[Rfam]
RNA sequence: GGCUGUGCCACACUCGUUCUUCACUGGCUAGCUUUACUGUUGUAUUUUGGUAAAGCUGCCAGUUGAAGAGCUGUUGUGGGCAGC
Numbered sequence: 001g002g003c004u005g006u007g008c009c010a011c012a013c014u015c016g017u018u019c020u021u022c023a024c025u026g027g028c029u030a031g032c033u034u035u036a037c038u039g040u041u042g043u044a045u046u047u048u049g050g051u052a053a054a055g056c057u058g059c060c061a062g063u064u065g066a067a068g069a070g071c072u073g074u075u076g077u078g079g080g081c082a083g084c
Stems, first nucleotide, its partner, number of pairs: 005081002010077003017070006026060003030057007
RNA: mir-22 microRNA precursor family